[Rfam]
RNA sequence: UAGGGAACUGCACGGCCGCAUAUCCGACGCGUCGUCCGCUUGGGCGGCUUGGGAGUGUGGCAGUGC
Numbered sequence: 001u002a003g004g005g006a007a008c009u010g011c012a013c014g015g016c017c018g019c020a021u022a023u024c025c026g027a028c029g030c031g032u033c034g035u036c037c038g039c040u041u042g043g044g045c046g047g048c049u050u051g052g053g054a055g056u057g058u059g060g061c062a063g064u065g066c
Stems, first nucleotide, its partner, number of pairs: 010066004015061007024053002031048007

Rfam assigns this 66-nucleotide sequence from Halarchaeum rubridurum to the family "S15-Halobacteria ribosomal protein leader". The match comes from Rfam's covariance-model search (78 bits). The family's consensus secondary structure is taken from published work. The organism belongs to Halarchaeum, within Archaea. A reference for the family is Eckert and Weinberg (2020), "Discovery of 20 novel ribosomal leader candidates in bacteria and archaea", BMC Microbiol.